[Rfam]
RNA: Glycine riboswitch aptamer
Organism: Mycolicibacterium wolinskyi
RNA sequence: UGAGUCGCGGCGGGAGAGCCCCGCCCCAUCCAGUUGGCGGGCGCCGCAGGAGCAAAUCCUCCCCAGGAAUCUCUCAGGCACCGGUACCGCCGCGACUAG
Numbered sequence: 001u002g003a004g005u006c007g008c009g010g011c012g013g014g015a016g017a018g019c020c021c022c023g024c025c026c027c028a029u030c031c032a033g034u035u036g037g038c039g040g041g042c043g044c045c046g047c048a049g050g051a052g053c054a055a056a057u058c059c060u061c062c063c064c065a066g067g068a069a070u071c072u073c074u075c076a077g078g079c080a081c082c083g084g085u086a087c088c089g090c091c092g093c094g095a096c097u098a099g
Stems, first nucleotide, its partner, number of pairs: 006094008020041006043079003046075001050073003057065001